[Rfam]
RNA sequence: CAUUGAAGUGAUGAUAUCCGAUUCAGGAAUGUUUUAUGUGUCGAUCCCAAAAAUCAUCCAGACUACAAUUAUCUGAUCAAUG
Numbered sequence: 001c002a003u004u005g006a007a008g009u010g011a012u013g014a015u016a017u018c019c020g021a022u023u024c025a026g027g028a029a030u031g032u033u034u035u036a037u038g039u040g041u042c043g044a045u046c047c048c049a050a051a052a053a054u055c056a057u058c059c060a061g062a063c064u065a066c067a068a069u070u071a072u073c074u075g076a077u078c079a080a081u082g
Base pairs, nucleotide, nucleotide: 001082002081003080004079005078006077
Rfam assigns this 82-nucleotide RNA sequence from Nicotiana tabacum to the family "Small nucleolar RNA Z155". The match comes from Rfam's covariance-model search (55 bits). Pairs were carried over by alignment from the consensus structure. On this family, see Chen et al., Nucleic Acids Res 2003: "The high diversity of snoRNAs in plants: identification and comparative study of 120 snoRNA genes from Oryza sativa". The family has 8 seed sequences and 429 matches in Rfam 15.1.